[Rfam]
RNA sequence: UGCGAUACCCAUCAAAGGUGUAGUUCCCCACCCGGGAGCUACUUUAUAUCGGGUUUA
Numbered sequence: 001u002g003c004g005a006u007a008c009c010c011a012u013c014a015a016a017g018g019u020g021u022a023g024u025u026c027c028c029c030a031c032c033c034g035g036g037a038g039c040u041a042c043u044u045u046a047u048a049u050c051g052g053g054u055u056u057a
Base pairs, nucleotide, nucleotide: 017045018044020042021041022040023039024038025037026036027035
The family of this 57-nucleotide RNA from Ziziphus jujuba is "Plastid-psbN 5UTR RNA". Plastid psbN is a non-coding RNA (ncRNA) recognised in plastids. It was reported as a conserved 11 stem-loop in the prime untranslated region (5UTR) of psbN genes. It has been reported that the motif is retained in a subset of mature transcripts in barley, which can suggests a possible role in transcript alternative 5 prime processing. Taxonomically the source falls in Ziziphus jujuba (Eukaryota, Viridiplantae, Streptophyta, eudicotyledons). The family's consensus secondary structure was predicted with LocARNA.